[Rfam]
RNA: mir-27 microRNA precursor family
Organism: Sander lucioperca
RNA sequence: UGGAGGGGCAGGACUUAGCUCACUCCGUGAACAGUUCAGUGAAAGCCUGUGUUCACAGUGGCUAAGUUCCGCUUCUCUC
Number, nucleotide and partner (000 for none) at each position: 001u000002g000003g000004a000005g000006g000007g000008g000009c000010a000011g069012g068013a067014c066015u065016u064017a063018g062019c061020u060021c000022a000023c000024u000025c000026c000027g056028u055029g054030a053031a052032c051033a050034g000035u000036u000037c000038a000039g000040u000041g000042a000043a000044a000045g000046c000047c000048u000049g000050u033051g032052u031053u030054c029055a028056c027057a000058g000059u000060g020061g019062c018063u017064a016065a015066g014067u013068u012069c011070c000071g000072c000073u000074u000075c000076u000077c000078u000079c000